[Rfam]
RNA sequence: AUCUUAGUGCACGGGUCUUACACGCAUCAGUGAGGAAUUAUCCGAGAUCGUGUUAUUGCUGGUUGAAAACUACCACCGUGACCACUUCAAGUGGGCCUCAUCGCCUGCUUGGGAAUUUUUGAAGCUACCCUUAAC
Numbered sequence: 001a002u003c004u005u006a007g008u009g010c011a012c013g014g015g016u017c018u019u020a021c022a023c024g025c026a027u028c029a030g031u032g033a034g035g036a037a038u039u040a041u042c043c044g045a046g047a048u049c050g051u052g053u054u055a056u057u058g059c060u061g062g063u064u065g066a067a068a069a070c071u072a073c074c075a076c077c078g079u080g081a082c083c084a085c086u087u088c089a090a091g092u093g094g095g096c097c098u099c100a101u102c103g104c105c106u107g108c109u110u111g112g113g114a115a116u117u118u119u120u121g122a123a124g125c126u127a128c129c130c131u132u133a134a135c
Base pairs, nucleotide, nucleotide: 020053021052022051023050024049026048027047028046034043035042036041086113087112088111089110090109091108092107093106094105095104096103
U4 spliceosomal RNA: a 135-nucleotide RNA sequence from Penicillium polonicum. The family is grouped with related families in Rfam's "U4 clan".